[Rfam]
This 111-nucleotide sequence from Mycolicibacterium chubuense belongs to the Rfam family "TPP riboswitch aptamer (THI element)".
RNA sequence: ACCUGACCACACGGGAGCGCACCCGCACGUGCGCUGAGAGGACGGCAACGGGCCGUCGACCGUAGAACCUGACCGGGUAAUGCCGGCGUAGGGAGUGACAAUGAAAUUGCA
Numbered sequence: 001a002c003c004u005g006a007c008c009a010c011a012c013g014g015g016a017g018c019g020c021a022c023c024c025g026c027a028c029g030u031g032c033g034c035u036g037a038g039a040g041g042a043c044g045g046c047a048a049c050g051g052g053c054c055g056u057c058g059a060c061c062g063u064a065g066a067a068c069c070u071g072a073c074c075g076g077g078u079a080a081u082g083c084c085g086g087c088g089u090a091g092g093g094a095g096u097g098a099c100a101a102u103g104a105a106a107u108u109g110c111a
Stems, first nucleotide, its partner, number of pairs: 008097003011063004017034005041057005068092004073086004
About the family: Vitamin B(1) in its active form thiamin pyrophosphate (TPP) is an essential coenzyme that is synthesised by coupling of pyrimidine and thiazole moieties in bacteria. The base pairs follow the family's consensus structure, which is taken from published work. A search with the family's covariance model found it, with a score of 59 bits.